[Rfam]
RNA: Small nucleolar RNA snoR109
RNA sequence: UGGCUGUAGCUAAAUCGAAACCGCUUGAGAAGCUAACUGGCCGGUUGUUGUGAUAUCCUUUUGGGAUCUCUGUCAAUAAAUCUGCUUACCGAGCUUCUCACAAUC
Numbered sequence: 001u002g003g004c005u006g007u008a009g010c011u012a013a014a015u016c017g018a019a020a021c022c023g024c025u026u027g028a029g030a031a032g033c034u035a036a037c038u039g040g041c042c043g044g045u046u047g048u049u050g051u052g053a054u055a056u057c058c059u060u061u062u063g064g065g066a067u068c069u070c071u072g073u074c075a076a077u078a079a080a081u082c083u084g085c086u087u088a089c090c091g092a093g094c095u096u097c098u099c100a101c102a103a104u105c
Stems, first nucleotide, its partner, number of pairs: 027099008039086003043082004047077004